This 66-nucleotide sequence from Caldibacillus debilis belongs to the Rfam family "Fluoride riboswitch aptamer (crcB RNA motif)". Rfam links the family to the GO terms positive regulation of gene expression and response to fluoride. The base pairs follow the family's consensus structure, which is taken from published work.

[Rfam]
RNA sequence: AUAUCAUCCGGUGAUGGAGUUCCGCCGUUAACCGCCUUGCAAAAGGCUGAUGACUCCUGCUGAAAA
Dot-bracket structure: .........[[[[..((((((.]]]].......((((......))))....)))))).........

It scores 60 bits against the family's covariance model.